[Rfam]
RNA sequence: UCGAACGACGGAGAUGACAUUCCUCCUUAACCGCCUUCACGGGCUGAUGAUGUCUACGUAACC
Numbered sequence: 001u002c003g004a005a006c007g008a009c010g011g012a013g014a015u016g017a018c019a020u021u022c023c024u025c026c027u028u029a030a031c032c033g034c035c036u037u038c039a040c041g042g043g044c045u046g047a048u049g050a051u052g053u054c055u056a057c058g059u060a061a062c063c
Stems, first nucleotide, its partner, number of pairs: 010026004016054006033044004
About this RNA
Rfam assigns this 63-nucleotide RNA from Serratia proteamaculans to the family "Fluoride riboswitch aptamer (crcB RNA motif)". The source organism's lineage runs through Bacteria, Enterobacterales, Yersiniaceae, Serratia and Serratia proteamaculans.